The family of this 179-nucleotide RNA from Frisingicoccus caecimuris is "6S / SsrS RNA". For this family Rfam cites "A highly conserved 6S RNA structure is required for regulation of transcription" (Trotochaud and Wassarman, Nat Struct Mol Biol, 2005). By type it is a non-coding RNA gene. E. coli 6S RNA was the first non coding RNA to be sequenced, but its function was unknown until recently.
RNA sequence: AGUAGCCUGGGGUGUACGAUGAUCCUGCUGUUUUGAACCUACAUUUAUGUAUACGGGAUACCAUAUAUCAAGAAUAUGUCAGGCCUCCGUUUGCAGUGGAAGACAGAAAACUUGACGAGGUAACCCACUUGGCGUCGGGUUAGGCGUCAAAAGGCAGGAGACGGCACUCUGGGUAUAUU
Numbered sequence: 001a002g003u004a005g006c007c008u009g010g011g012g013u014g015u016a017c018g019a020u021g022a023u024c025c026u027g028c029u030g031u032u033u034u035g036a037a038c039c040u041a042c043a044u045u046u047a048u049g050u051a052u053a054c055g056g057g058a059u060a061c062c063a064u065a066u067a068u069c070a071a072g073a074a075u076a077u078g079u080c081a082g083g084c085c086u087c088c089g090u091u092u093g094c095a096g097u098g099g100a101a102g103a104c105a106g107a108a109a110a111c112u113u114g115a116c117g118a119g120g121u122a123a124c125c126c127a128c129u130u131g132g133c134g135u136c137g138g139g140u141u142a143g144g145c146g147u148c149a150a151a152a153g154g155c156a157g158g159a160g161a162c163g164g165c166a167c168u169c170u171g172g173g174u175a176u177a178u179u
Base pairs, nucleotide, nucleotide: 005174006173007172008171009170010169011168012167013166014165015164017163018162034149035148036147038144039143055126056125057124059122060121061120062119064117068115069114070113071112072111078104079103084099085098087096